[Rfam]
RNA sequence: UGGCUUCUGCGUAACUGACGGAUUCGCGGGUUUACACCGCAUGGGAGCGCAGAGAAAAGCCUGCCGACCGUCUGGGCGAUUCAG
Dot-bracket structure: ....((((((((..(([[[[[....((((.......))))..))..)))))))).......((((..]]]]]..))))......
Numbered sequence: 001u002g003g004c005u006u007c008u009g010c011g012u013a014a015c016u017g018a019c020g021g022a023u024u025c026g027c028g029g030g031u032u033u034a035c036a037c038c039g040c041a042u043g044g045g046a047g048c049g050c051a052g053a054g055a056a057a058a059g060c061c062u063g064c065c066g067a068c069c070g071u072c073u074g075g076g077c078g079a080u081u082c083a084g
Stems, first nucleotide, its partner, number of pairs: 005054008015044002017072005026040004062078004
Description:
Rfam assigns this 84-nucleotide RNA sequence from Firmicutes bacterium CAG:110 to the family "ZMP/ZTP riboswitch aptamer (pfl RNA motif)". The family's consensus secondary structure is taken from published work. Lineage of the source: Bacteria > Bacillati > Bacillota.